Overview: A member of the RNA family "Plant signal recognition particle RNA" from Lupinus albus, 303 nucleotides long.
RNA sequence: GCCGAGUUGGGUAACACCAGCUUGUAACCCAAGUGGGGGCAUUAAGGUGUUGGGACAUAGUCUUGGCUGGCUAGGGUGGAUUGGUUUGUGCAAAUGUUGGCUUGCCCACUCCAAGUUGAGAGUUGAACCAUGAAGUUUACGAUAAAUCGAAGGCUUCAUGAUUCCUAGAUUGGAGGGCACAGCGUGAGGCUGGCUUCACAGAGCAGCGACUACCUCUAGCUCCCAACAGUGGAGGGAUCACAGGCUACAGCACUCCUAGUCCUUCAUUCCUAGCUAGCCUUGGCUACUUGGACCAACACUUUU
Numbered sequence: 001g002c003c004g005a006g007u008u009g010g011g012u013a014a015c016a017c018c019a020g021c022u023u024g025u026a027a028c029c030c031a032a033g034u035g036g037g038g039g040c041a042u043u044a045a046g047g048u049g050u051u052g053g054g055a056c057a058u059a060g061u062c063u064u065g066g067c068u069g070g071c072u073a074g075g076g077u078g079g080a081u082u083g084g085u086u087u088g089u090g091c092a093a094a095u096g097u098u099g100g101c102u103u104g105c106c107c108a109c110u111c112c113a114a115g116u117u118g119a120g121a122g123u124u125g126a127a128c129c130a131u132g133a134a135g136u137u138u139a140c141g142a143u144a145a146a147u148c149g150a151a152g153g154c155u156u157c158a159u160g161a162u163u164c165c166u167a168g169a170u171u172g173g174a175g176g177g178c179a180c181a182g183c184g185u186g187a188g189g190c191u192g193g194c195u196u197c198a199c200a201g202a203g204c205a206g207c208g209a210c211u212a213c214c215u216c217u218a219g220c221u222c223c224c225a226a227c228a229g230u231g232g233a234g235g236g237a238u239c240a241c242a243g244g245c246u247a248c249a250g251c252a253c254u255c256c257u258a259g260u261c262c263u264u265c266a267u268u269c270c271u272a273g274c275u276a277g278c279c280u281u282g283g284c285u286a287c288u289u290g291g292a293c294c295a296a297c298a299c300u301u302u303u
Stems, first nucleotide, its partner, number of pairs: 001040003004023007028037003044302010056290002058286005065279012078262007088253003098247007106236002109234005115227004120222004125164003129160010140149003171218006183208003190201003
The family has 63 seed sequences and 4,988 matches in Rfam 15.1.